[Rfam]
The record is an 88-nucleotide sequence from Bacillus sp. T33-2, which matches "Glycine riboswitch aptamer" in Rfam.
The pairing is the family consensus, mapped onto this sequence.
Taxonomically the source falls in Bacillus (Bacteria, Bacillati, Bacillota, Bacilli).
Gene Ontology term of the family: glycine biosynthetic process.
RNA sequence: AUGAUGGCAAGGGGAGAGACUACUUUUGUAGCGCCGAAGGAGCAAGCGAACACGCGAAUCUCUCAGGCAAAAGAACUCUUGUUUGACG
Numbered sequence: 001a002u003g004a005u006g007g008c009a010a011g012g013g014g015a016g017a018g019a020c021u022a023c024u025u026u027u028g029u030a031g032c033g034c035c036g037a038a039g040g041a042g043c044a045a046g047c048g049a050a051c052a053c054g055c056g057a058a059u060c061u062c063u064c065a066g067g068c069a070a071a072a073g074a075a076c077u078c079u080u081g082u083u084u085g086a087c088g
Stems, first nucleotide, its partner, number of pairs: 006083008020031004033068003036064002040062003046055002
Clan: Glycine riboswitch clan. It scores 68 bits against the family's covariance model.